RNA sequence: GGCCUCCCUCUGCGGGGUGAUGGGUUGUGGGGCUCCGCAAUUAAUUGCCCAGCAGAGGAAGGCC
Numbered sequence: 001g002g003c004c005u006c007c008c009u010c011u012g013c014g015g016g017g018u019g020a021u022g023g024g025u026u027g028u029g030g031g032g033c034u035c036c037g038c039a040a041u042u043a044a045u046u047g048c049c050c051a052g053c054a055g056a057g058g059a060a061g062g063c064c
Stems, first nucleotide, its partner, number of pairs: 001064005007058007015050007023042008

Background
Rfam assigns this 64-nucleotide RNA sequence from Pipistrellus kuhlii to the family "mir-9242 microRNA precursor family". Lineage of the source: Eukaryota > Teleostomi > Tetrapoda > Laurasiatheria > Pipistrellus. The base pairs follow the family's consensus structure, which was predicted with RNAalifold.